[Rfam]
Background:
Shown here is a 68-nucleotide RNA from Candidatus Protofrankia californiensis, a member of the family "ASdes TB sRNA". The match comes from Rfam's covariance-model search (64 bits). The family has 26 seed sequences and 1,192 matches in Rfam 15.1. On this family, see Arnvig and Young, Mol Microbiol 2009: "Identification of small RNAs in Mycobacterium tuberculosis".
RNA sequence: AGGGCGACCGGGUCGAUACCACGGGUGACCAUCAGGUAGUCCCGCAUCACGAUGCUGUGACGUCCCUC
Number, nucleotide and partner (000 for none) at each position: 001a000002g000003g000004g063005c062006g061007a000008c059009c000010g000011g030012g029013u028014c000015g000016a026017u025018a000019c000020c000021a000022c000023g000024g000025g017026u016027g000028a013029c012030c011031a000032u000033c000034a000035g056036g055037u054038a053039g000040u052041c051042c000043c000044g048045c000046a000047u000048c044049a000050c000051g041052a040053u038054g037055c036056u035057g000058u000059g008060a000061c006062g005063u004064c000065c000066c000067u000068c000